[Rfam]
RNA sequence: UGAGCUUCGCAGAAUUUAUCUAUUUUCCUAUGAAUGUUGCUUUUGUUUUUCUUUAGGGUUGAAAAGUGCGAAGCUAGAAAAUAGGCUCCCCUCGCUAUCCAAUACAGAUACUUCUUACUCUGCAUUGGACGUUGGGGAGCUACAUUG
Numbered sequence: 001u002g003a004g005c006u007u008c009g010c011a012g013a014a015u016u017u018a019u020c021u022a023u024u025u026u027c028c029u030a031u032g033a034a035u036g037u038u039g040c041u042u043u044u045g046u047u048u049u050u051c052u053u054u055a056g057g058g059u060u061g062a063a064a065a066g067u068g069c070g071a072a073g074c075u076a077g078a079a080a081a082u083a084g085g086c087u088c089c090c091c092u093c094g095c096u097a098u099c100c101a102a103u104a105c106a107g108a109u110a111c112u113u114c115u116u117a118c119u120c121u122g123c124a125u126u127g128g129a130c131g132u133u134g135g136g137g138a139g140c141u142a143c144a145u146u147g
Base pairs, nucleotide, nucleotide: 001078003075004074005073008070009069010068011067016063017062026058027057028056029055030054033052036051085140086139087138088137089136090135091134093131094130098129099128100127101126102125107120108119
RNA: Small nucleolar RNA snoR136